[Rfam]
RNA sequence: GUGUUUUUCAUAGUAAUAGAUUUAAGAUUAAUAGUUAGUAUUUGCUUGUGAAAGUCAGUACACUUACGGAUAAAAGCGUUUAUCCGAAAAGAAAAGAGAGGCGACCGGAAACGGAAGCCUCUUUCUUUUU
Numbered sequence: 001g002u003g004u005u006u007u008u009c010a011u012a013g014u015a016a017u018a019g020a021u022u023u024a025a026g027a028u029u030a031a032u033a034g035u036u037a038g039u040a041u042u043u044g045c046u047u048g049u050g051a052a053a054g055u056c057a058g059u060a061c062a063c064u065u066a067c068g069g070a071u072a073a074a075a076g077c078g079u080u081u082a083u084c085c086g087a088a089a090a091g092a093a094a095a096g097a098g099a100g101g102c103g104a105c106c107g108g109a110a111a112c113g114g115a116a117g118c119c120u121c122u123u124u125c126u127u128u129u130u
Base pairs, nucleotide, nucleotide: 038061039060040059041058045054046053047052069084070083071082072081073080074079096123097122098121099120100119101118102117105114106113
A member of the RNA family "GibS sRNA" from Phocaeicola vulgatus, 130 nucleotides long.
About the family: A small RNA with a conserved region in the 5' region in gene clusters, related to carbon metabolism in Bacteroidetes.
Lineage of the source: Bacteria > Bacteroidota > Bacteroidaceae > Phocaeicola > Phocaeicola vulgatus.